[Rfam]
RNA sequence: GAUGAGGCUCGAAAGGCCCUGCAACAAACGACACGAGUGCAAACUCGCAGUAGGACUUGCAGGGAGCCGGUGUCUCAUCGUACGUUUUGAAAAACGA
Number, nucleotide and partner (000 for none) at each position: 001g079002a078003u077004g076005a075006g074007g073008c072009u000010c070011g000012a000013a000014a000015g068016g067017c000018c000019c062020u061021g060022c059023a058024a057025c000026a000027a000028a000029c053030g000031a000032c000033a000034c047035g046036a045037g044038u043039g000040c000041a000042a000043a038044c037045u036046c035047g034048c000049a000050g000051u000052a000053g029054g000055a000056c000057u024058u023059g022060c021061a020062g019063g000064g000065a000066g000067c016068c015069g000070g010071u000072g008073u007074c006075u005076c004077a003078u002079c001080g000081u000082a000083c096084g095085u094086u000087u000088u000089g000090a000091a000092a000093a000094a085095c084096g083097a000
RNA: Archaeal large subunit ribosomal RNA, nucleotides 542 to 638
Organism: Halorussus gelatinilyticus